[Rfam]
RNA sequence: CGUGCACUGGUGGGGUCCCUCGGCCUGGUCUGUGCCCUCUCACAAUCCGGGACCCCUCAGAGGAUGUCGGAGAGCUGGUUUCAGUCCGAUCCCCACAGGCCAGGCCAAGGGACCCCACCAGUGCACG
Numbered sequence: 001c002g003u004g005c006a007c008u009g010g011u012g013g014g015g016u017c018c019c020u021c022g023g024c025c026u027g028g029u030c031u032g033u034g035c036c037c038u039c040u041c042a043c044a045a046u047c048c049g050g051g052a053c054c055c056c057u058c059a060g061a062g063g064a065u066g067u068c069g070g071a072g073a074g075c076u077g078g079u080u081u082c083a084g085u086c087c088g089a090u091c092c093c094c095a096c097a098g099g100c101c102a103g104g105c106c107a108a109g110g111g112a113c114c115c116c117a118c119c120a121g122u123g124c125a126c127g
Base pairs, nucleotide, nucleotide: 003125004124006122008120009119010118012116013115014114015113016112017111018110019109020108022106023105024104025103027101028100029099030098031097032096033095034094

mir-9193 microRNA precursor family: a 127-nucleotide sequence from Cnephaeus nilssonii. Lineage of the source: Eukaryota > Craniata > Mammalia > Boreoeutheria > Cnephaeus. Rfam 15.1 lists 6,008 matches to the family in 8 species. The match comes from Rfam's covariance-model search (56 bits).